[Rfam]
RNA sequence: UUGCCCAAUGAUUAUAGCAAGACGCGUUAUUACGAGGACUAAUGCUGGACCUCUGCUUCUUAUCUCCUCCUCUUUUCUUUGUCCCUUCUCCACUUUCACUUUAACCCUCAUUAUCCUUGGGUGUCCAGCGUCCUGUGAGCAAGAUUAUGAGAUAUGAGGGCAA
Number, nucleotide and partner (000 for none) at each position: 001u163002u162003g161004c160005c159006c158007a000008a000009u000010g000011a000012u000013u000014a000015u000016a000017g000018c000019a000020a000021g000022a000023c000024g000025c000026g000027u000028u000029a000030u000031u000032a000033c000034g000035a054036g053037g052038a000039c000040u049041a000042a000043u000044g000045c000046u000047g000048g000049a040050c000051c000052u037053c036054u035055g000056c000057u000058u000059c000060u000061u000062a000063u000064c000065u000066c000067c000068u000069c000070c000071u000072c000073u000074u000075u000076u000077c000078u000079u000080u000081g000082u000083c000084c000085c000086u000087u000088c000089u000090c000091c000092a000093c000094u000095u000096u000097c000098a000099c000100u000101u000102u000103a000104a000105c000106c000107c000108u000109c000110a000111u000112u000113a000114u000115c000116c000117u000118u000119g000120g000121g000122u000123g000124u000125c000126c000127a000128g000129c000130g000131u000132c000133c000134u000135g000136u000137g000138a000139g000140c000141a000142a000143g000144a000145u000146u000147a000148u000149g000150a000151g000152a000153u000154a000155u000156g000157a000158g006159g005160g004161c003162a002163a001
The record is a 163-nucleotide sequence from Chelydra serpentina, which matches "Small nucleolar RNA SNORD97" in Rfam. Rfam 15.1 lists 639 matches to the family in 614 species. Gene Ontology terms of the family: RNA processing and nucleolus. It is annotated as a C/D-box small nucleolar RNA. The source organism's lineage runs through Eukaryota, Deuterostomia, Amniota, Archelosauria and Chelydra. The literature on the family includes a 2003 paper in Nucleic Acids Res by Vitali et al., "Identification of 13 novel human modification guide RNAs".